[Rfam]
RNA sequence: UGUCUCCUCCACCUCCUCCAUUGGUGGAUUCAGCCCGGGGUGCGAACCCCGGGCUUUUUUCU
Numbered sequence: 001u002g003u004c005u006c007c008u009c010c011a012c013c014u015c016c017u018c019c020a021u022u023g024g025u026g027g028a029u030u031c032a033g034c035c036c037g038g039g040g041u042g043c044g045a046a047c048c049c050c051g052g053g054c055u056u057u058u059u060u061c062u
Stems, first nucleotide, its partner, number of pairs: 008028006032055008

Overview:
A member of the RNA family "Betaproteobacteria toxic small RNA" from Pseudaquabacterium pictum, 62 nucleotides long. Lineage of the source: Bacteria > Pseudomonadati > Pseudomonadota > Betaproteobacteria > Pseudaquabacterium.